[Rfam]
RNA sequence: CUUCCUCGAUCUGCUGCGGGCAGAUCCAGUGGACGUGGGUGUCGAUGCCGCCGGGGGUCACGAUCAUGCCUUCGGCCGCGAUCACCUCGGUACCGGGGCCGAUCACGAUGUCCACGCCGGGCUGCACGUCCGGGUUGCCGGCCUUGCCGAUGCGGAAGAUGCGCGAGCCCUUGAUGCCGAUGUCGGCCUUGACGAUGCCCCAGUGGUCGACGAUCAGGGCGUUGGUCAGCACGCAGUCGACCGCCUCGCCGUCACCGGGGCCGUUGACGCGCUGGCCCUGGCCCAUGCCGUCGCGGAUG
Numbered sequence: 001c002u003u004c005c006u007c008g009a010u011c012u013g014c015u016g017c018g019g020g021c022a023g024a025u026c027c028a029g030u031g032g033a034c035g036u037g038g039g040u041g042u043c044g045a046u047g048c049c050g051c052c053g054g055g056g057g058u059c060a061c062g063a064u065c066a067u068g069c070c071u072u073c074g075g076c077c078g079c080g081a082u083c084a085c086c087u088c089g090g091u092a093c094c095g096g097g098g099c100c101g102a103u104c105a106c107g108a109u110g111u112c113c114a115c116g117c118c119g120g121g122c123u124g125c126a127c128g129u130c131c132g133g134g135u136u137g138c139c140g141g142c143c144u145u146g147c148c149g150a151u152g153c154g155g156a157a158g159a160u161g162c163g164c165g166a167g168c169c170c171u172u173g174a175u176g177c178c179g180a181u182g183u184c185g186g187c188c189u190u191g192a193c194g195a196u197g198c199c200c201c202a203g204u205g206g207u208c209g210a211c212g213a214u215c216a217g218g219g220c221g222u223u224g225g226u227c228a229g230c231a232c233g234c235a236g237u238c239g240a241c242c243g244c245c246u247c248g249c250c251g252u253c254a255c256c257g258g259g260g261c262c263g264u265u266g267a268c269g270c271g272c273u274g275g276c277c278c279u280g281g282c283c284c285a286u287g288c289c290g291u292c293g294c295g296g297a298u299g
Stems, first nucleotide, its partner, number of pairs: 001299001003297001005295001007293003011158002014155004018076001022072002030053003034050002037048001039046002057069002078147001081144001085140001090138003094134001097130003101125001102123001104121001106119001107117001163282002166279001171267006177260002186220006200209001223257003228252001234248001236246001
RNA: 5' ureB small RNA
Organism: Caldimonas thermodepolymerans